Notes:
The family of this 96-nucleotide RNA from Nicotiana attenuata is "MIR6152 microRNA precursor family".
[Rfam]
RNA sequence: AUGACAGAUUAUUGUAUUCGACUGUAUUCACGGCGUGAAAUAGGAGAUUACAAUGUCUUUAAACGGAAAGUGAACCAAUUAACAUAAUAUACUCCU
Numbered sequence: 001a002u003g004a005c006a007g008a009u010u011a012u013u014g015u016a017u018u019c020g021a022c023u024g025u026a027u028u029c030a031c032g033g034c035g036u037g038a039a040a041u042a043g044g045a046g047a048u049u050a051c052a053a054u055g056u057c058u059u060u061a062a063a064c065g066g067a068a069a070g071u072g073a074a075c076c077a078a079u080u081a082a083c084a085u086a087a088u089a090u091a092c093u094c095c096u
Stems, first nucleotide, its partner, number of pairs: 003094002010089006017082002020080002023077002027074005034065003037059002040056003
The base pairs follow the family's consensus structure, which was predicted with RNAalifold.